[Rfam]
RNA sequence: UAUCUAUCUAGAGAGGUGGAGGGAAAUGGCCCUUUGAAGCCUCGGCAACAGGUUCUUCAUAUAAGAAUACUGUGCCAAUUCCAUCAAGCAAAUUGCUUGGAAGAUAGGAA
Numbered sequence: 001u002a003u004c005u006a007u008c009u010a011g012a013g014a015g016g017u018g019g020a021g022g023g024a025a026a027u028g029g030c031c032c033u034u035u036g037a038a039g040c041c042u043c044g045g046c047a048a049c050a051g052g053u054u055c056u057u058c059a060u061a062u063a064a065g066a067a068u069a070c071u072g073u074g075c076c077a078a079u080u081c082c083a084u085c086a087a088g089c090a091a092a093u094u095g096c097u098u099g100g101a102a103g104a105u106a107g108g109a110a
Stems, first nucleotide, its partner, number of pairs: 001110001003108006013043005021032003026084004044076004049072002052068004080102001085099006
Description:
Shown here is a 110-nucleotide RNA sequence from Oceanobacillus bengalensis, a member of the family "SAM riboswitch aptamer (S box leader)". The base pairs follow the family's consensus structure, which is taken from published work. It scores 86 bits against the family's covariance model. The SAM riboswitch is found upstream of a number of genes which code for proteins involved in methionine or cysteine biosynthesis in Gram-positive bacteria.